[Rfam]
RNA: PyrR binding site
Organism: Aquibacillus halophilus
RNA sequence: AAGACCUUUAAAACAGUCCCGUGAGGCUGGAAAGGAAACGGUAGACAUAGGUAGUACAGGUAUGUCCAACCCCUUUUUUCCACACGGAGAAGAGGGGUUUUAUU
Numbered sequence: 001a002a003g004a005c006c007u008u009u010a011a012a013a014c015a016g017u018c019c020c021g022u023g024a025g026g027c028u029g030g031a032a033a034g035g036a037a038a039c040g041g042u043a044g045a046c047a048u049a050g051g052u053a054g055u056a057c058a059g060g061u062a063u064g065u066c067c068a069a070c071c072c073c074u075u076u077u078u079u080c081c082a083c084a085c086g087g088a089g090a091a092g093a094g095g096g097g098u099u100u101u102a103u104u
Stems, first nucleotide, its partner, number of pairs: 005035005014029005045065005068099014
Dot-bracket structure: ....(((((....(((((......))))).))))).........(((((...........)))))..((((((((((((((....)))))))))))))).....